This 75-nucleotide RNA from Acidisarcina polymorpha belongs to the Rfam family "CyVA-1 RNA".
RNA sequence: GCAGAGGAGCGGGUUUUCGCGAUUUCCUCCGCUUGUCGCCGGCGCAGGAGAAUCGCGUCAGCCGGCGGACUCUGC
Numbered sequence: 001g002c003a004g005a006g007g008a009g010c011g012g013g014u015u016u017u018c019g020c021g022a023u024u025u026c027c028u029c030c031g032c033u034u035g036u037c038g039c040c041g042g043c044g045c046a047g048g049a050g051a052a053u054c055g056c057g058u059c060a061g062c063c064g065g066c067g068g069a070c071u072c073u074g075c
Stems, first nucleotide, its partner, number of pairs: 001075006009032004037067007
Lineage of the source: Bacteria > Pseudomonadati > Acidobacteriota > Terriglobia > Acidisarcina.
Rfam's curators write: Cyanobacteria, Acidobacteria (1 example), Verrucomicrobia (1 example).